[Rfam]
RNA sequence: GGAAUUUAAAAAACAGUUUCUUAAUUUUUAACUAAAAAAACUAAGAAUCGGUUUUUAAAUAAAGACUUUAAGAACUGGUUCUUAGUUUUUUUUAGUUAAAAGUUAAGAAACAGUUUAUUAACUUCC
Numbered sequence: 001g002g003a004a005u006u007u008a009a010a011a012a013a014c015a016g017u018u019u020c021u022u023a024a025u026u027u028u029u030a031a032c033u034a035a036a037a038a039a040a041c042u043a044a045g046a047a048u049c050g051g052u053u054u055u056u057a058a059a060u061a062a063a064g065a066c067u068u069u070a071a072g073a074a075c076u077g078g079u080u081c082u083u084a085g086u087u088u089u090u091u092u093u094a095g096u097u098a099a100a101a102g103u104u105a106a107g108a109a110a111c112a113g114u115u116u117a118u119u120a121a122c123u124u125c126c
Base pairs, nucleotide, nucleotide: 001126002125003124004123006121007120008119009118011116012115013114014113016111017110018109019108020107021106022105023104024103025102026101027100028099029098030097031096032095033094034093035092036091037090038089039088041085042084043083044082045081046080047079
The family of this 126-nucleotide RNA sequence from Brassica oleracea is "MIR9563 microRNA precursor family". Rfam links the family to the GO terms miRNA-mediated post-transcriptional gene silencing and RISC complex. Pairs were carried over by alignment from the consensus structure, which was predicted with RNAalifold. Taxonomically the source falls in Brassica oleracea (Eukaryota, eudicotyledons, Gunneridae, Brassicales).